[Rfam]
RNA: PreQ1 (pre queuosine) riboswitch aptamer
Organism: Halalkalibacterium halodurans
RNA sequence: GUGAGAGAGGUUCGCGAACUCCCUCUAUAAAAAACUAAGGCAAG
Numbered sequence: 001g002u003g004a005g006a007g008a009g010g011u012u013c014g015c016g017a018a019c020u021c022c023c024u025c026u027a028u029a030a031a032a033a034a035c036u037a038a039g040g041c042a043a044g
Stems, first nucleotide, its partner, number of pairs: 006026005016036001